This 149-nucleotide RNA sequence from Medicago truncatula belongs to the Rfam family "MIR2619 microRNA precursor family". Gene Ontology terms of the family: miRNA-mediated post-transcriptional gene silencing and RISC complex. Lineage of the source: Eukaryota > Mesangiospermae > Fabaceae > Hologalegina > Medicago. Pairs were carried over by alignment from the consensus structure, which was predicted with RNAalifold.
RNA sequence: AAACAGCUCCCUAUGUAUUGGAUCUUUGGCAGUUUUGGCCCCCCAAGGCCACUUUUGACUUGGCACAGGUGCCACGUCAGCGAAGACCAAGUCAAAAGUGGCAUUGGGGGGCCAAAACUGCCAAAGAUCCAAUACAUAGGGGGCUGUUU
Numbered sequence: 001a002a003a004c005a006g007c008u009c010c011c012u013a014u015g016u017a018u019u020g021g022a023u024c025u026u027u028g029g030c031a032g033u034u035u036u037g038g039c040c041c042c043c044c045a046a047g048g049c050c051a052c053u054u055u056u057g058a059c060u061u062g063g064c065a066c067a068g069g070u071g072c073c074a075c076g077u078c079a080g081c082g083a084a085g086a087c088c089a090a091g092u093c094a095a096a097a098g099u100g101g102c103a104u105u106g107g108g109g110g111g112c113c114a115a116a117a118c119u120g121c122c123a124a125a126g127a128u129c130c131a132a133u134a135c136a137u138a139g140g141g142g143g144c145u146g147u148u149u
Stems, first nucleotide, its partner, number of pairs: 001149002004146005012138034058077002061074005